[Rfam]
Description
The family of this 95-nucleotide sequence from Callithrix jacchus is "Small nucleolar RNA SNORD116". The family's consensus secondary structure was predicted with PFOLD. The family's RNA type in Rfam is C/D-box small nucleolar RNA. Rfam links the family to the GO terms RNA processing and nucleolus.
RNA sequence: GGAUUGAUGAUGAGUCCCCUAAAAAAAACAUUCCUUGGAAAAGCUGAACAAAAUGAGUGAAACUCAUACCGUCCCUCUCAUUGGAAUUGAGGUCC
Numbered sequence: 001g002g003a004u005u006g007a008u009g010a011u012g013a014g015u016c017c018c019c020u021a022a023a024a025a026a027a028a029c030a031u032u033c034c035u036u037g038g039a040a041a042a043g044c045u046g047a048a049c050a051a052a053a054u055g056a057g058u059g060a061a062a063c064u065c066a067u068a069c070c071g072u073c074c075c076u077c078u079c080a081u082u083g084g085a086a087u088u089g090a091g092g093u094c095c
Stems, first nucleotide, its partner, number of pairs: 001095005029059005035051003